[Rfam]
RNA sequence: GUGAUUGGUAGAGGAGCGAAAACCAUUAGUAGACGUGCCGAGGAAAUGAGAUCUGUAGACGUACGUUAAAAGGGGAAUUCGCCGAAGUGCAAGGUGAGACUCAUCUUUUCUUGUGCUGGACCUAUGCUAAAUAGGCAUAGGGCUGUCACAUACUUACACCCAAGAAGUAUGUGGAGAACUAUCUCACGA
Numbered sequence: 001g002u003g004a005u006u007g008g009u010a011g012a013g014g015a016g017c018g019a020a021a022a023c024c025a026u027u028a029g030u031a032g033a034c035g036u037g038c039c040g041a042g043g044a045a046a047u048g049a050g051a052u053c054u055g056u057a058g059a060c061g062u063a064c065g066u067u068a069a070a071a072g073g074g075g076a077a078u079u080c081g082c083c084g085a086a087g088u089g090c091a092a093g094g095u096g097a098g099a100c101u102c103a104u105c106u107u108u109u110c111u112u113g114u115g116c117u118g119g120a121c122c123u124a125u126g127c128u129a130a131a132u133a134g135g136c137a138u139a140g141g142g143c144u145g146u147c148a149c150a151u152a153c154u155u156a157c158a159c160c161c162a163a164g165a166a167g168u169a170u171g172u173g174g175a176g177a178a179c180u181a182u183c184u185c186a187c188g189a
Stems, first nucleotide, its partner, number of pairs: 007183005016082005023075002032067007086117009096107002118144002121141008146174010
RNA: Lysine riboswitch aptamer